Glycine riboswitch aptamer: an 85-nucleotide RNA sequence.

RNA sequence: CUCUGGAAAGUUAGGACUUCGCGUCCUGCGCCCACGGUGCAAGCUGCCUAAACAGCGGCGAAGCUCUCAGGCUCCGAUGACAGAG
Numbered sequence: 001c002u003c004u005g006g007a008a009a010g011u012u013a014g015g016a017c018u019u020c021g022c023g024u025c026c027u028g029c030g031c032c033c034a035c036g037g038u039g040c041a042a043g044c045u046g047c048c049u050a051a052a053c054a055g056c057g058g059c060g061a062a063g064c065u066c067u068c069a070g071g072c073u074c075c076g077a078u079g080a081c082a083g084a085g
Base pairs, nucleotide, nucleotide: 001085002084003083004082005081012028013027014026015025030072031071032070034067037066039064043059044058045057046056047055

On this family, see Babina et al., MBio 2017: "In Vivo Behavior of the Tandem Glycine Riboswitch in Bacillus subtilis". It scores 34 bits against the family's covariance model.